[Rfam]
RNA sequence: CCGUGCUAGAUGGGGAGUCAGCGGUGCCCUGUAACCCGCAAUCCGCUAUAGCGGGGUUGAAUUCCCCAUGGAGGCUUUAUUCUGUGUUAUCGGACUAUUACAACUGGUGUUGAGAGUUGGGUCCCACGCAUCAAGAACCUGUGAACCUCGUCAGGACCGGAAGGUAGCAGCGAUAAGCAGUCUUUCUUGAGUGCCGUGGACAAAUCUGGCUUGAGCUGGGUGUAAUAGUAACGGGCAUAGAGUACUGUCGAAGUGGGGUGCACGG
Numbered sequence: 001c002c003g004u005g006c007u008a009g010a011u012g013g014g015g016a017g018u019c020a021g022c023g024g025u026g027c028c029c030u031g032u033a034a035c036c037c038g039c040a041a042u043c044c045g046c047u048a049u050a051g052c053g054g055g056g057u058u059g060a061a062u063u064c065c066c067c068a069u070g071g072a073g074g075c076u077u078u079a080u081u082c083u084g085u086g087u088u089a090u091c092g093g094a095c096u097a098u099u100a101c102a103a104c105u106g107g108u109g110u111u112g113a114g115a116g117u118u119g120g121g122u123c124c125c126a127c128g129c130a131u132c133a134a135g136a137a138c139c140u141g142u143g144a145a146c147c148u149c150g151u152c153a154g155g156a157c158c159g160g161a162a163g164g165u166a167g168c169a170g171c172g173a174u175a176a177g178c179a180g181u182c183u184u185u186c187u188u189g190a191g192u193g194c195c196g197u198g199g200a201c202a203a204a205u206c207u208g209g210c211u212u213g214a215g216c217u218g219g220g221u222g223u224a225a226u227a228g229u230a231a232c233g234g235g236c237a238u239a240g241a242g243u244a245c246u247g248u249c250g251a252a253g254u255g256g257g258g259u260g261c262a263c264g265g
Stems, first nucleotide, its partner, number of pairs: 001265006009058003012030004017025003035055005064258006073249003079243010093229001096227006104220002106217003114212009124199005129191001132189005139180004148173004156165003

Shown here is a 265-nucleotide RNA sequence from Clostridium cellulovorans, a member of the family "Bacterial large signal recognition particle RNA". About the family: The signal recognition particle (SRP) is a universally conserved ribonucleoprotein involved in the co-translational targeting of proteins to membranes. Rfam links the family to the GO terms SRP-dependent cotranslational protein targeting to membrane, signal sequence recognition and signal recognition particle, plasma membrane targeting. Rfam classes the family as a non-coding RNA gene. The match comes from Rfam's covariance-model search (197 bits). NCBI's taxonomy places the organism under Bacteria, Eubacteriales, Clostridiaceae, Clostridium, Clostridium cellulovorans. Pairs were carried over by alignment from the consensus structure, which is taken from published work.